[Rfam]
RNA: Small nucleolar RNA SNORA22
Organism: Microtus ochrogaster
RNA sequence: UUGCACAGUGUACACCCAAGUGUGCUUUCUCUGUGGUUACCUUGGCCUUGAAUCUGUGCUAGAGUAAAGCCUCUUCUUUUCCUCUCCAAUGAAAGGGUACUGUGUCCUCUUAAAUGUGUUCAGAAAAAUUGGCAUAUCA
Numbered sequence: 001u002u003g004c005a006c007a008g009u010g011u012a013c014a015c016c017c018a019a020g021u022g023u024g025c026u027u028u029c030u031c032u033g034u035g036g037u038u039a040c041c042u043u044g045g046c047c048u049u050g051a052a053u054c055u056g057u058g059c060u061a062g063a064g065u066a067a068a069g070c071c072u073c074u075u076c077u078u079u080u081c082c083u084c085u086c087c088a089a090u091g092a093a094a095g096g097g098u099a100c101u102g103u104g105u106c107c108u109c110u111u112a113a114a115u116g117u118g119u120u121c122a123g124a125a126a127a128a129u130u131g132g133c134a135u136a137u138c139a
Stems, first nucleotide, its partner, number of pairs: 003059006010053001013050002016045005024037003061077004066072001083124003087116002090113001091111002094108004